[Rfam]
RNA sequence: GUUCCCACUGAUGGAUGGAGUUUUUAAACCAUGCUAAUGCUGAUAAUCCAGUGAUUAAAAAUUUUCAUUCGAUUUUUUCUGAGGGAACU
Number, nucleotide and partner (000 for none) at each position: 001g088002u087003u086004c085005c084006c000007a000008c000009u000010g000011a000012u000013g000014g000015a000016u000017g000018g000019a000020g000021u000022u000023u000024u000025u000026a000027a000028a000029c000030c000031a000032u000033g000034c000035u000036a000037a000038u000039g000040c000041u000042g000043a000044u000045a000046a000047u000048c000049c000050a000051g000052u000053g000054a000055u000056u000057a000058a000059a000060a000061a000062u000063u000064u000065u000066c000067a000068u000069u000070c000071g000072a000073u000074u000075u000076u000077u000078u000079c000080u000081g000082a000083g000084g005085g004086a003087a002088c001089u000